[Rfam]
RNA sequence: GCAGACUCACUCUGUACCUGGCUGCAGACCCCCAGCGAGUGCUUCUUUCAUCUGCCAGAGAAGCAUACUGGGGUGCUCUGGCCACCUCGACCUGUUGGGUGAUGCAGCUUUCCCAGGACACAAGG
Numbered sequence: 001g002c003a004g005a006c007u008c009a010c011u012c013u014g015u016a017c018c019u020g021g022c023u024g025c026a027g028a029c030c031c032c033c034a035g036c037g038a039g040u041g042c043u044u045c046u047u048u049c050a051u052c053u054g055c056c057a058g059a060g061a062a063g064c065a066u067a068c069u070g071g072g073g074u075g076c077u078c079u080g081g082c083c084a085c086c087u088c089g090a091c092c093u094g095u096u097g098g099g100u101g102a103u104g105c106a107g108c109u110u111u112c113c114c115a116g117g118a119c120a121c122a123a124g125g
Base pairs, nucleotide, nucleotide: 001055002054003053004052005051014042015041016040017039019037020036022035023034024033068116069115070114071113072112073111075108076107077106079104080103083101084100085099086098087097
Dot-bracket structure: (((((........((((.((.(((........))))).))))........)))))............((((((.(((.((..(((((.........))))).)).)))..)))))).........